[Rfam]
RNA sequence: GAUUAAUGAAGCGGUUCACCUCCUCCCGAACCUCUUCAUAGCGACUGACAACACUCCUCCUCCCAGUUGUCAGUCAUGAUUAAAGCCCGGUGCACCUCCUCCCGCGCCGGGCUUUUUAU
Numbered sequence: 001g002a003u004u005a006a007u008g009a010a011g012c013g014g015u016u017c018a019c020c021u022c023c024u025c026c027c028g029a030a031c032c033u034c035u036u037c038a039u040a041g042c043g044a045c046u047g048a049c050a051a052c053a054c055u056c057c058u059c060c061u062c063c064c065a066g067u068u069g070u071c072a073g074u075c076a077u078g079a080u081u082a083a084a085g086c087c088c089g090g091u092g093c094a095c096c097u098c099c100u101c102c103c104g105c106g107c108c109g110g111g112c113u114u115u116u117u118a119u
Base pairs, nucleotide, nucleotide: 007038008037009036011034013032014031015030016029017028043075044074045073046072047071048070049069050068051067052066083114084113085112086111087110088109089108090107091106092105093104
Shown here is a 119-nucleotide RNA sequence from Phytoamicus setariae, a member of the family "Alphaproteobacterial ar14". Pairs were carried over by alignment from the consensus structure. It scores 107 bits against the family's covariance model. Its family is annotated with biological process involved in symbiotic interaction in the Gene Ontology. Rfam's curators write: Smr14C2 was renamed NfeR1 (Nodule Formation Efficiency RNA) highly expressed in salt stress and during the symbiotic interaction on legume roots. Rfam 15.1 lists 784 matches to the family in 332 species.